[Rfam]
RNA sequence: AAGACCUUACUUCAUAGGAUCAUUUCUAUAGUAAGCUCUUCACGAGAUCUACACACUACGUGAGAUCGUACCAGCCGUGUUGAUGAGACGUGGCGCGGCGUCCUGAGCGUGAGGCGGACGACGGCUUCCGGCCGCCAGUCCUCGAUGAUCGUUCACCUCUCUCACCAGUGGGGGAGGCGUGGGGCGCUGUCGCUGUCUGAGCGGU
Numbered sequence: 001a002a003g004a005c006c007u008u009a010c011u012u013c014a015u016a017g018g019a020u021c022a023u024u025u026c027u028a029u030a031g032u033a034a035g036c037u038c039u040u041c042a043c044g045a046g047a048u049c050u051a052c053a054c055a056c057u058a059c060g061u062g063a064g065a066u067c068g069u070a071c072c073a074g075c076c077g078u079g080u081u082g083a084u085g086a087g088a089c090g091u092g093g094c095g096c097g098g099c100g101u102c103c104u105g106a107g108c109g110u111g112a113g114g115c116g117g118a119c120g121a122c123g124g125c126u127u128c129c130g131g132c133c134g135c136c137a138g139u140c141c142u143c144g145a146u147g148a149u150c151g152u153u154c155a156c157c158u159c160u161c162u163c164a165c166c167a168g169u170g171g172g173g174g175a176g177g178c179g180u181g182g183g184g185c186g187c188u189g190u191c192g193c194u195g196u197c198u199g200a201g202c203g204g205u
Stems, first nucleotide, its partner, number of pairs: 001040004006035006015028005048064001050062001074205005093193003096189009107152003117140003122134004156177008
Shown here is a 205-nucleotide RNA from Danaus chrysippus, a member of the family "Small nucleolar RNA U3". The literature on the family includes a 1999 paper in Mol Cell Biol by Speckmann et al., "Nuclear retention elements of U3 small nucleolar RNA". Rfam's curators write: Small nucleolar RNAs (snoRNAs) are involved in the processing and modification of rRNA in the nucleolus. Gene Ontology terms of the family: RNA processing and nucleolus.